Rfam assigns this 119-nucleotide RNA from Mucilaginibacter robiniae to the family "SAM riboswitch aptamer (S box leader)". The organism belongs to Mucilaginibacter, within Bacteria.

RNA sequence: GAUUUAUAAAGAAGCGGCGAGAGAUCAGGCUCACAGACCCGCUGGCAACCCUCCAAUGUAUCAGGAGAAGGUGCCAAAUCCUGUCCCGAUUAACAAUUUACCAUCGGGGAAUAUAAAUG
Numbered sequence: 001g002a003u004u005u006a007u008a009a010a011g012a013a014g015c016g017g018c019g020a021g022a023g024a025u026c027a028g029g030c031u032c033a034c035a036g037a038c039c040c041g042c043u044g045g046c047a048a049c050c051c052u053c054c055a056a057u058g059u060a061u062c063a064g065g066a067g068a069a070g071g072u073g074c075c076a077a078a079u080c081c082u083g084u085c086c087c088g089a090u091u092a093a094c095a096a097u098u099u100a101c102c103a104u105c106g107g108g109g110a111a112u113a114u115a116a117a118u119g
Stems, first nucleotide, its partner, number of pairs: 002118007013043005021032003026083004044075004049071002051067004079111001085108006
The base pairs follow the family's consensus structure, which is taken from published work.